Rfam assigns this 74-nucleotide RNA to the family "DUF3800-X RNA".
RNA sequence: UGGUAAGUAAGACCUGCCCGAAAAGAAUGAGGCCUAUGGAAGUAGGAUGGAAGCGAGUAGGGCAGGGUUUACCA
Dot-bracket structure: ((((((......(((((((.............(((((....))))).............)))))))..))))))
Background
The sequence is in the family's curated seed alignment.